Rfam assigns this 229-nucleotide RNA sequence from Miscanthus lutarioriparius to the family "MIR6217 microRNA precursor family". The organism belongs to Miscanthus, within Eukaryota. Pairs were carried over by alignment from the consensus structure, which was predicted with RNAalifold. The match comes from Rfam's covariance-model search (150 bits).
RNA sequence: UGGCCUGAGAAUAACUUAUUAUGUGGCCACUUUGAAUUACGAUAAUUACCAUGCUAAUUUACAAGAUUACAGUAACUUCUUACUAAGUGAUUUACUGUAACAUUAUCGUAAAUAUCACUGUGAGUUGUAGUAACAUGAGUAUCGUAAAAAUGCAUAUUCAUGUUAUCGUAAAUUGGUACAAAUAUUAUCGUAAAUCAAGGUGACUAUAGAAUAAGUUAUUAUAUGGCCA
Number, nucleotide and partner (000 for none) at each position: 001u229002g228003g227004c226005c225006u000007g000008a222009g000010a220011a219012u218013a217014a216015c215016u214017u213018a212019u211020u210021a000022u208023g207024u206025g205026g204027c000028c202029a201030c200031u199032u198033u197034g000035a000036a000037u193038u192039a191040c190041g189042a188043u187044a186045a185046u184047u000048a000049c000050c000051a000052u178053g177054c176055u175056a174057a173058u172059u171060u170061a169062c168063a000064a000065g167066a166067u165068u000069a163070c162071a161072g159073u156074a155075a000076c000077u000078u000079c000080u147081u146082a145083c144084u000085a000086a000087g142088u141089g140090a000091u138092u137093u132094a131095c130096u129097g128098u127099a126100a125101c124102a000103u122104u000105a000106u000107c000108g116109u000110a000111a000112a000113u000114a000115u000116c108117a000118c000119u000120g000121u000122g103123a000124g101125u100126u099127g098128u097129a096130g095131u094132a093133a000134c000135a000136u000137g092138a091139g000140u089141a088142u087143c000144g083145u082146a081147a080148a000149a000150a000151u000152g000153c000154a000155u074156a073157u000158u000159c072160a000161u071162g070163u069164u000165a067166u066167c065168g062169u061170a060171a059172a058173u057174u056175g055176g054177u053178a052179c000180a000181a000182a000183u000184a046185u045186u044187a043188u042189c041190g040191u039192a038193a037194a000195u000196c000197a033198a032199g031200g030201u029202g028203a000204c026205u025206a024207u023208a022209g000210a020211a019212u018213a017214a016215g015216u014217u013218a012219u011220u010221a000222u008223a000224u000225g005226g004227c003228c002229a001